[Rfam]
Shown here is a 134-nucleotide RNA from Paraburkholderia dinghuensis, a member of the family "Burkholderia sRNA 39".
RNA sequence: GUAUUGUGGGGACCGCCUCCUUACGCGAGGCGUUGGGCACUAGCCAGUCACGACGGCCUGCACGCGAGAUCUAGACCCCUUCGUGCAAACAUUAUUCAAGCCGGCCGUCGCAGCCAGCCACGCCAUUUUUUUGU
Numbered sequence: 001g002u003a004u005u006g007u008g009g010g011g012a013c014c015g016c017c018u019c020c021u022u023a024c025g026c027g028a029g030g031c032g033u034u035g036g037g038c039a040c041u042a043g044c045c046a047g048u049c050a051c052g053a054c055g056g057c058c059u060g061c062a063c064g065c066g067a068g069a070u071c072u073a074g075a076c077c078c079c080u081u082c083g084u085g086c087a088a089a090c091a092u093u094a095u096u097c098a099a100g101c102c103g104g105c106c107g108u109c110g111c112a113g114c115c116a117g118c119c120a121c122g123c124c125a126u127u128u129u130u131u132u133g134u
Stems, first nucleotide, its partner, number of pairs: 006126004010119002014032006036045003047114002051110008059087004065083004
About this RNA:
Pairs were carried over by alignment from the consensus structure, which was predicted with RNAfold. Trans-encoded, exhibits differential expression profiles dependent on growth phase and cell stimuli, such as antbiotics and serum. May function in bacterial metabolism and adaptation to the host. Shown to be expressed in biotin.